[Rfam]
RNA sequence: AUGUAACACUAGGGGUGCUGAAAAGCUGAGAGAGGCAAUCGCUGCCUUAACCCUUGAACCUGAUCUAGGUAAUACUAGCGAAGGGAAGUGGUACGGAACGUUU
Numbered sequence: 001a002u003g004u005a006a007c008a009c010u011a012g013g014g015g016u017g018c019u020g021a022a023a024a025g026c027u028g029a030g031a032g033a034g035g036c037a038a039u040c041g042c043u044g045c046c047u048u049a050a051c052c053c054u055u056g057a058a059c060c061u062g063a064u065c066u067a068g069g070u071a072a073u074a075c076u077a078g079c080g081a082a083g084g085g086a087a088g089u090g091g092u093a094c095g096g097a098a099c100g101u102u103u
Base pairs, nucleotide, nucleotide: 007090008089009088010087011054012053013052014051017026018025019024033047034046035045036044037043059084060083061082065078066077067076068075
A member of the RNA family "TPP riboswitch aptamer (THI element)" from Exobacillus caeni, 103 nucleotides long.
A search with the family's covariance model found it, with a score of 74 bits.